[Rfam]
RNA sequence: GGCGUAAAGGGCGCGUAGGCGGACUUUUAAGUCGGGGGUGAAAGCCCAGGGCUCAACCCUGGAAUUGCCUUCGAUACUGAGAGUCUUGAGUUCGGAAGAGGUUGGUGGAACUGCGAGUGUAGAGGUGAAAUUCGUAGAUAUUCGCAAGAACACCAGUGGCGAAGGCGGCCAACUGGUCCGAUACUGACGCUGAGGCGCGAAAGCGUGGGGAGCAAACAGGAUUAGAUACCCUGGUAGUCCACGCCGUAAACGAUGAAUGCCAGCCGUUGGGGUGCAUGCACCUCAGUGGCGCAGCUAACGCUUUAAGCAUUCCGCCUGGGGAGUACGGUCGCAAGAUUAAAACUCAAAGGAAU
Dot-bracket structure: (((.....(.((((.(.(((.(((((((.(((((((((((.....((((((.....))))))...)))))))))..)))))))))...((((((((...((((((((....(((((((...(((......)))......)))))))....).......((....)).)))))))..))))).)))...))))..))))....((((((...((...((((.........))))...))))))))..........((((((..((((((((((((....))))))))))))...((....)).....)))))))))).(((......((((....))))....)))........
Rfam assigns this 353-nucleotide part of an RNA from Allobosea sp. AAP35 to the family "Bacterial small subunit ribosomal RNA".
For this family Rfam cites "Crystal structure of the ribosome at 5.5 A resolution" (Yusupov et al., Science, 2001).